[Rfam]
RNA sequence: UGGUGCCAAACGGUGUGGCUUUGGAUACGGGGGAAUUCUCGAGGGAAGUGGUGUGUAAAUGUUCGGCCGUUCGGCCAAAGAAGAAAAAAAAAGUGAAAGUCAGUUCCAAAAAGUUCGCCACGGGAGUCUGCUGCACCAUUCUUAAAGGUAUAGUAGCGCCUACGUAUGGGACAAGAAUUAAGUAAGCAUAAAGUUUUUGUUAAGCAAUUAAAAGAAGCUUUAUAGACACGGGGAGUAAAGGUUAAGAGUAAUGAUCUUUUUAAGUUUUUUGACCUUAUUAAGGACACCUGUCUGU
Dot-bracket structure: .....((.....(((..........)))...))....(.(.......).).................................................((..((....((.........(((.......))).....))...)).)).....(.(..((((....)))).).)....(((((.................................)).)))......((((((((..((((((.......))))))......))))))))........(.((((....)))).)
About this RNA:
A member of the RNA family "Mason-Pfizer monkey virus packaging signal" from Sciurus vulgaris, 295 nucleotides long. A reference for the family is Mustafa et al. (2004), "Mutational analysis of the predicted secondary RNA structure of the Mason-Pfizer monkey virus packaging signal", Virus Res. By type it is a cis-regulatory element. It scores 145 bits against the family's covariance model. NCBI's taxonomy places the organism under Eukaryota, Craniata, Gnathostomata, Sciuridae, Sciurus. Rfam 15.1 lists 2,921 matches to the family in 53 species. The base pairs follow the family's consensus structure, which was predicted with PFOLD. This family represents a group of sequences that are related to the Mason-Pfizer monkey virus (MPMV) packaging signal. The packaging signal is located in the 5' UTR and is required for specific RNA encapsidation.